[Rfam]
RNA: Bacterial large signal recognition particle RNA
Organism: Clostridium sp. cel8
RNA sequence: UCGUGCUAGAUGGGGAGUUAGCGGUGCCCUGUACCUGCAAUCCGCUACAGCAGGAUUGAAUUCCUUGCUUAGGCUUCAAAUUGUAAGGCUGGCCUGUAAAAGUGGCGUUGAGAACUGGGUCCCACGCAAUGGAAACUCAUGAACCCCGUCAGGUCCGGAAGGAAGCAGCGGUAAGUGAUAAUUUUCGUGUGCCGUGGAAAAACCUAGUUUGAGCUAACUAUACAGGUAACGCUUAUGAUUUGUUAGACGAAGCAAGGUGCACGA
Numbered sequence: 001u002c003g004u005g006c007u008a009g010a011u012g013g014g015g016a017g018u019u020a021g022c023g024g025u026g027c028c029c030u031g032u033a034c035c036u037g038c039a040a041u042c043c044g045c046u047a048c049a050g051c052a053g054g055a056u057u058g059a060a061u062u063c064c065u066u067g068c069u070u071a072g073g074c075u076u077c078a079a080a081u082u083g084u085a086a087g088g089c090u091g092g093c094c095u096g097u098a099a100a101a102g103u104g105g106c107g108u109u110g111a112g113a114a115c116u117g118g119g120u121c122c123c124a125c126g127c128a129a130u131g132g133a134a135a136c137u138c139a140u141g142a143a144c145c146c147c148g149u150c151a152g153g154u155c156c157g158g159a160a161g162g163a164a165g166c167a168g169c170g171g172u173a174a175g176u177g178a179u180a181a182u183u184u185u186c187g188u189g190u191g192c193c194g195u196g197g198a199a200a201a202a203c204c205u206a207g208u209u210u211g212a213g214c215u216a217a218c219u220a221u222a223c224a225g226g227u228a229a230c231g232c233u234u235a236u237g238a239u240u241u242g243u244u245a246g247a248c249g250a251a252g253c254a255a256g257g258u259g260c261a262c263g264a
Stems, first nucleotide, its partner, number of pairs: 001264006009057003012030004017025003034054005063257007072248001074246002078241010092227001094225005102218002104215003112210009122197005127189002130187005137178004146171004154163003